The family of this 152-nucleotide RNA from Urocitellus parryii is "U12 minor spliceosomal RNA". Rfam links the family to the GO terms U12 snRNP, mRNA branch site recognition and pre-mRNA branch point binding.

RNA sequence: UUGCUUUAACCUUAUAAGUAAAAAAAAAAAAAAAAAGAUUCAGGGUGAUGACUGAUUCUUCACUGCUAAUGUGAAGUAAAUUUUUGAACUGGUAAAGUUUUCCCCUAAGGUGACCUGCCUACUUUGCAGAAUGCCUGGGAAUGAUCUGUCCA
Numbered sequence: 001u002u003g004c005u006u007u008a009a010c011c012u013u014a015u016a017a018g019u020a021a022a023a024a025a026a027a028a029a030a031a032a033a034a035a036a037g038a039u040u041c042a043g044g045g046u047g048a049u050g051a052c053u054g055a056u057u058c059u060u061c062a063c064u065g066c067u068a069a070u071g072u073g074a075a076g077u078a079a080a081u082u083u084u085u086g087a088a089c090u091g092g093u094a095a096a097g098u099u100u101u102c103c104c105c106u107a108a109g110g111u112g113a114c115c116u117g118c119c120u121a122c123u124u125u126g127c128a129g130a131a132u133g134c135c136u137g138g139g140a141a142u143g144a145u146c147u148g149u150c151c152a
Base pairs, nucleotide, nucleotide: 005022006021007020008019037058038057040055041054042053043052059075060074061073062072063071090152091151092150096147097146099144100143105139106138108136109135110134111133112132115129116128117127118126
About this RNA
NCBI's taxonomy places the organism under Eukaryota, Metazoa, Boreoeutheria, Sciuromorpha, Urocitellus. It scores 80 bits against the family's covariance model. The literature on the family includes a 1997 paper in Trends Biochem Sci by Tarn and Steitz, "Pre-mRNA splicing: the discovery of a new spliceosome doubles the challenge". Its Rfam clan is "U2 clan". The base pairs follow the family's consensus structure.